The family of this 75-nucleotide RNA from Myotis brandtii is "mir-9223 microRNA precursor family".
RNA sequence: GACGGUUCUCAGGUGAUGCACCCCAGAAUCAAGCUUCCUCCUCUCUGGUUCUGGGUGCAUCACCUGAGAACCGCA
Numbered sequence: 001g002a003c004g005g006u007u008c009u010c011a012g013g014u015g016a017u018g019c020a021c022c023c024c025a026g027a028a029u030c031a032a033g034c035u036u037c038c039u040c041c042u043c044u045c046u047g048g049u050u051c052u053g054g055g056u057g058c059a060u061c062a063c064c065u066g067a068g069a070a071c072c073g074c075a
Stems, first nucleotide, its partner, number of pairs: 003073001005071013019057005025052007033044001